RNA sequence: GGCUGGUUGAGGGAGCCGGCGCUCCCCGCGGGCUGCAAACCCGUCUGAGAACGCCUUACCCGCGUUCUGUUCGGUUCGACUCCGAACCCAGCC
Numbered sequence: 001g002g003c004u005g006g007u008u009g010a011g012g013g014a015g016c017c018g019g020c021g022c023u024c025c026c027c028g029c030g031g032g033c034u035g036c037a038a039a040c041c042c043g044u045c046u047g048a049g050a051a052c053g054c055c056u057u058a059c060c061c062g063c064g065u066u067c068u069g070u071u072c073g074g075u076u077c078g079a080c081u082c083c084g085a086a087c088c089c090a091g092c093c
Stems, first nucleotide, its partner, number of pairs: 001093006008086001011026006028044005048068005071085004